A member of the RNA family "L31-Firmicutes ribosomal protein leader", 42 nucleotides long. On this family, see Eckert and Weinberg, BMC Microbiol 2020: "Discovery of 20 novel ribosomal leader candidates in bacteria and archaea". Clan: Ribosomal Protein L31 Leader clan.
Nucleotides: 042
Stems, first nucleotide, its partner, number of pairs: 001032005006025001008023006
Number, partner (000 for none) and nucleotide at each position: 001032c002031u003030u004029u005028g006025a007000u008023g009022g010021u011020g012019a013018u014000g015000u016000u017000g018013a019012u020011u021010g022009c023008u024000c025006u026000u027000u028005c029004a030003a031002g032001g033000c034000u035000c036000a037000a038000a039000g040000g041000a042000g